Shown here is a 131-nucleotide RNA from Microbulbifer rhizosphaerae, a member of the family "Guanidine-I riboswitch aptamer". The organism belongs to Microbulbifer, within Bacteria.
[Rfam]
RNA sequence: GCAAUGGACAGCUAGGGUUCCGAUCAGUUGACUGAUGACUGGACCGAGAGCUGUCGACCUUUCGUGGGUAUCGGGAUGAGCGCGGCGCUCAUCUCAGGAAGGUUACACGGCGGGAUAAAAGCCCGGGAGGA
Numbered sequence: 001g002c003a004a005u006g007g008a009c010a011g012c013u014a015g016g017g018u019u020c021c022g023a024u025c026a027g028u029u030g031a032c033u034g035a036u037g038a039c040u041g042g043a044c045c046g047a048g049a050g051c052u053g054u055c056g057a058c059c060u061u062u063c064g065u066g067g068g069u070a071u072c073g074g075g076a077u078g079a080g081c082g083c084g085g086c087g088c089u090c091a092u093c094u095c096a097g098g099a100a101g102g103u104u105a106c107a108c109g110g111c112g113g114g115a116u117a118a119a120a121g122c123c124c125g126g127g128a129g130g131a
Base pairs, nucleotide, nucleotide: 007055008054009053010052011051012050015045016044020042021041022039023036024035025034026033027032056104057103058102059101060100061099062098063097106126108129112124113123114122
The base pairs follow the family's consensus structure. A search with the family's covariance model found it, with a score of 88 bits. For this family Rfam cites "Structural basis for guanidine sensing by the ykkC family of riboswitches" (Battaglia et al., RNA, 2017).